[Rfam]
RNA: Small Cajal body specific RNA 24
RNA sequence: UGGACACGGAAGUUUUCUUUCAGUUUCUCCUCCACGUGGAGAAAACUGCACGAGUGUCCUACAGUAACCCAGAAGCUAUCUGUUCAGCUCCGGUGAGUUAAUGGAGUUGGAUCGUUCCACUUCUGACAGCU
Numbered sequence: 001u002g003g004a005c006a007c008g009g010a011a012g013u014u015u016u017c018u019u020u021c022a023g024u025u026u027c028u029c030c031u032c033c034a035c036g037u038g039g040a041g042a043a044a045a046c047u048g049c050a051c052g053a054g055u056g057u058c059c060u061a062c063a064g065u066a067a068c069c070c071a072g073a074a075g076c077u078a079u080c081u082g083u084u085c086a087g088c089u090c091c092g093g094u095g096a097g098u099u100a101a102u103g104g105a106g107u108u109g110g111a112u113c114g115u116u117c118c119a120c121u122u123c124u125g126a127c128a129g130c131u
Base pairs, nucleotide, nucleotide: 002059003058004057005056006055007054022047023046024045025044026042027041028040029039030038070125071124072123073122074121075120089105090104091103092102